[Rfam]
RNA: mir-10 microRNA precursor family
RNA sequence: CUAUAUAUACCCUGUAGAUCCGAAUUUGUGUGAAUAUACAGUCGCAAAUUCGUGUCUUGGGGAAUAUGUAGU
Numbered sequence: 001c002u003a004u005a006u007a008u009a010c011c012c013u014g015u016a017g018a019u020c021c022g023a024a025u026u027u028g029u030g031u032g033a034a035u036a037u038a039c040a041g042u043c044g045c046a047a048a049u050u051c052g053u054g055u056c057u058u059g060g061g062g063a064a065u066a067u068g069u070a071g072u
Stems, first nucleotide, its partner, number of pairs: 002070006010062003016057004021052010
Dot-bracket structure: .((((((..(((...((((.((((((((((............)))))))))).))))..)))..))))))..